[Rfam]
RNA sequence: UCAGUCGGACAGUUUGUCGCUUGCGGCUUUAUGCCUCAAGAGGAAAGUCCGGGCAACACAGGGCACCUUGCUUCCUAACGGGAAGAGGUUCGUGAGAGCCUGUCAGUGCAGAAGAAAACAACCGCCGUCGUUUGCUGACGGUAAGGGUGAGAAGGUGGAGUAAGAGCCCACCAGGCGCAUGGCGACAUGCGUGCUGUGCACUCCGAGGGUUGAAAGUUCGCGUAAACCGACGUCUGAAGGUGGUCCCGCCUGAGCAACUUGUUGCACGUCGGAGGGUAGAACGAUAGAGCCAUACGGCGACGUAUGGUGUAGAUAAAUGACAAACACGCACGCUAUUGUGCGUACAGAACCCGGCUCAUCGUCCGACUGAUUUU
Numbered sequence: 001u002c003a004g005u006c007g008g009a010c011a012g013u014u015u016g017u018c019g020c021u022u023g024c025g026g027c028u029u030u031a032u033g034c035c036u037c038a039a040g041a042g043g044a045a046a047g048u049c050c051g052g053g054c055a056a057c058a059c060a061g062g063g064c065a066c067c068u069u070g071c072u073u074c075c076u077a078a079c080g081g082g083a084a085g086a087g088g089u090u091c092g093u094g095a096g097a098g099c100c101u102g103u104c105a106g107u108g109c110a111g112a113a114g115a116a117a118a119c120a121a122c123c124g125c126c127g128u129c130g131u132u133u134g135c136u137g138a139c140g141g142u143a144a145g146g147g148u149g150a151g152a153a154g155g156u157g158g159a160g161u162a163a164g165a166g167c168c169c170a171c172c173a174g175g176c177g178c179a180u181g182g183c184g185a186c187a188u189g190c191g192u193g194c195u196g197u198g199c200a201c202u203c204c205g206a207g208g209g210u211u212g213a214a215a216g217u218u219c220g221c222g223u224a225a226a227c228c229g230a231c232g233u234c235u236g237a238a239g240g241u242g243g244u245c246c247c248g249c250c251u252g253a254g255c256a257a258c259u260u261g262u263u264g265c266a267c268g269u270c271g272g273a274g275g276g277u278a279g280a281a282c283g284a285u286a287g288a289g290c291c292a293u294a295c296g297g298c299g300a301c302g303u304a305u306g307g308u309g310u311a312g313a314u315a316a317a318u319g320a321c322a323a324a325c326a327c328g329c330a331c332g333c334u335a336u337u338g339u340g341c342g343u344a345c346a347g348a349a350c351c352c353g354g355c356u357c358a359u360c361g362u363c364c365g366a367c368u369g370a371u372u373u374u
Stems, first nucleotide, its partner, number of pairs: 001370010011359001012325007020040004025035003046356002049354005054212004061260002066208005071085005086101001088099004102203001106201005122146002124142007154172005174194001175192007216282004227272005254265004289308008
Dot-bracket structure: ((((((((((((((((((.((((.(((.....))).)))).....[[.[[[[[((((...[[...((((((((((.....)))))(.((((....)))).)(...(((((...........(((((((((.....)))))))..)).......(((((.........))))).((((((((....))))))).)..))))).))))))))))...((((.......(((((......................((((.]].))))..)))))......))))......((((((((....))))))))..........)))))))........................]]]]]]]..).))))))))))....

Shown here is a 374-nucleotide RNA sequence from Pseudoprevotella muciniphila, a member of the family "Bacterial RNase P class A". Rfam describes the family as follows. Ribonuclease P (RNase P) is a ubiquitous endoribonuclease, found in archaea, bacteria and eukarya as well as chloroplasts and mitochondria. It scores 223 bits against the family's covariance model. Lineage of the source: Bacteria > Bacteroidota > Bacteroidia > Prevotellaceae > Pseudoprevotella. By type it is a ribozyme.